The record is a 90-nucleotide RNA from Erpetoichthys calabaricus, which matches "Small nucleolar SNORD12/SNORD106" in Rfam. Pairs were carried over by alignment from the consensus structure, which was predicted with RNAalifold. It is annotated as a C/D-box small nucleolar RNA. NCBI's taxonomy places the organism under Eukaryota, Bilateria, Chordata, Teleostomi, Erpetoichthys.

RNA sequence: UAUGGUGUUCCAUGAUGAUGACUUUUCUUUCCCUGACAGACCAGCAAUGUUGACAUUAUAGUAAAAAGCCAAAGUGUCCGAGACACCAUU
Numbered sequence: 001u002a003u004g005g006u007g008u009u010c011c012a013u014g015a016u017g018a019u020g021a022c023u024u025u026u027c028u029u030u031c032c033c034u035g036a037c038a039g040a041c042c043a044g045c046a047a048u049g050u051u052g053a054c055a056u057u058a059u060a061g062u063a064a065a066a067a068g069c070c071a072a073a074g075u076g077u078c079c080g081a082g083a084c085a086c087c088a089u090u
Stems, first nucleotide, its partner, number of pairs: 002089008